[Rfam]
RNA sequence: GAACAUGAGAGUUUGAUCCUGGCUCAGGAUGAACGCUGGCGGCGUGCUUAACACAUGCAAGUCGAACGAAGCGCCUUAUUUGAUUUUCUUCGGAACUGAAGAUUUGGUGACUGAGUGGCGGACGGGUGAGUAACGCGUGGGUAACCUGCCCUGUACAGGGGGAUAACAAUCAGAAAUGACUGCUAAUACCGCAUAAGACCACAGCACCGCAUGGUGCAGGGGUAAAAACUCCGGUGGUACAGGAUGGACCCGCGUCUGAUUAGCUGGUUGGUGAGGUAACGGCUCACCAAGGCGACGAUCAGUAGCCGGCUUGAGAGAGUGAACGGCCACAUUGGGACUGAGACACGGCCCAAACUCCUACGGGAGGCAGCAGUGGGGAAUAUUGCACAAUGGGGGGAACCCUGAUGCAGCGACGCCGCGUGAGUGAAGAAGUAUCUCGGUAUGUAAAGCUCUAUCAGCAGGGAAGAAAAUGACGGUACCUGACUAAGAAGCCCCGGCUAACUACGUGCCAGCAGCCGCGGUAAUACGUAGGGGGCAAGCGUUAUCCGGAAUUACUG
Numbered sequence: 001g002a003a004c005a006u007g008a009g010a011g012u013u014u015g016a017u018c019c020u021g022g023c024u025c026a027g028g029a030u031g032a033a034c035g036c037u038g039g040c041g042g043c044g045u046g047c048u049u050a051a052c053a054c055a056u057g058c059a060a061g062u063c064g065a066a067c068g069a070a071g072c073g074c075c076u077u078a079u080u081u082g083a084u085u086u087u088c089u090u091c092g093g094a095a096c097u098g099a100a101g102a103u104u105u106g107g108u109g110a111c112u113g114a115g116u117g118g119c120g121g122a123c124g125g126g127u128g129a130g131u132a133a134c135g136c137g138u139g140g141g142u143a144a145c146c147u148g149c150c151c152u153g154u155a156c157a158g159g160g161g162g163a164u165a166a167c168a169a170u171c172a173g174a175a176a177u178g179a180c181u182g183c184u185a186a187u188a189c190c191g192c193a194u195a196a197g198a199c200c201a202c203a204g205c206a207c208c209g210c211a212u213g214g215u216g217c218a219g220g221g222g223u224a225a226a227a228a229c230u231c232c233g234g235u236g237g238u239a240c241a242g243g244a245u246g247g248a249c250c251c252g253c254g255u256c257u258g259a260u261u262a263g264c265u266g267g268u269u270g271g272u273g274a275g276g277u278a279a280c281g282g283c284u285c286a287c288c289a290a291g292g293c294g295a296c297g298a299u300c301a302g303u304a305g306c307c308g309g310c311u312u313g314a315g316a317g318a319g320u321g322a323a324c325g326g327c328c329a330c331a332u333u334g335g336g337a338c339u340g341a342g343a344c345a346c347g348g349c350c351c352a353a354a355c356u357c358c359u360a361c362g363g364g365a366g367g368c369a370g371c372a373g374u375g376g377g378g379a380a381u382a383u384u385g386c387a388c389a390a391u392g393g394g395g396g397g398a399a400c401c402c403u404g405a406u407g408c409a410g411c412g413a414c415g416c417c418g419c420g421u422g423a424g425u426g427a428a429g430a431a432g433u434a435u436c437u438c439g440g441u442a443u444g445u446a447a448a449g450c451u452c453u454a455u456c457a458g459c460a461g462g463g464a465a466g467a468a469a470a471u472g473a474c475g476g477u478a479c480c481u482g483a484c485u486a487a488g489a490a491g492c493c494c495c496g497g498c499u500a501a502c503u504a505c506g507u508g509c510c511a512g513c514a515g516c517c518g519c520g521g522u523a524a525u526a527c528g529u530a531g532g533g534g535g536c537a538a539g540c541g542u543u544a545u546c547c548g549g550a551a552u553u554a555c556u557g
Base pairs, nucleotide, nucleotide: 009025010024011023012022013021027547028546029545030544032543033542034541035540036539037538039419040418041417042416043415044414045412046411047377052375053374054373056372057371058370061119062118063117066116067115069112072109073108074107075106078103079102080101081100126330127329128328135255136254137253138252139251140250141249142248145247146246150243151242152241153240154239155238156237158192160190161189167182168181170179171178172177198223199222200221202219204217206215207214208213228235229234256302257301258300263293264292265291268290269289270288271287272286273285274284275283305327306326307325308324309320310319311318312317332353333352334351335350336349355366356365357364358363383409385408386407387406391404392403393402394401395400422452423451424450425449432443433442434441435440456488459482460481461480462479466474491536492535493534494533495532502531503530504529505528506527512519513518

Notes
This 557-nucleotide part of an RNA from Firmicutes bacterium AF12-30 belongs to the Rfam family "Bacterial small subunit ribosomal RNA". The source organism's lineage runs through Bacteria, Bacillati and Bacillota. Its Rfam clan is "SSU clan". It scores 1575 bits against the family's covariance model. Gene Ontology terms of the family: structural constituent of ribosome and ribosome.